Glycine riboswitch aptamer: a 130-nucleotide RNA sequence from Clostridium sp. JN-9. Rfam's curators write: This family represents the bacterial glycine riboswitch. A search with the family's covariance model found it, with a score of 48 bits.

RNA sequence: AUGAAAUUUUCGGAAGAUAAUUUGUAUAAUUUAGAUAUAGGAUAAAUAUUUAUACAGAUAGCCGAAGGAAUAAGUAUUAUUAUCCAAAAUAUAAUACGAAGCUCUCAGGCAAAAGGACCGAAGAUGGACA
Numbered sequence: 001a002u003g004a005a006a007u008u009u010u011c012g013g014a015a016g017a018u019a020a021u022u023u024g025u026a027u028a029a030u031u032u033a034g035a036u037a038u039a040g041g042a043u044a045a046a047u048a049u050u051u052a053u054a055c056a057g058a059u060a061g062c063c064g065a066a067g068g069a070a071u072a073a074g075u076a077u078u079a080u081u082a083u084c085c086a087a088a089a090u091a092u093a094a095u096a097c098g099a100a101g102c103u104c105u106c107a108g109g110c111a112a113a114a115g116g117a118c119c120g121a122a123g124a125u126g127g128a129c130a
Stems, first nucleotide, its partner, number of pairs: 006125008020059010061110003064106002068104002074097007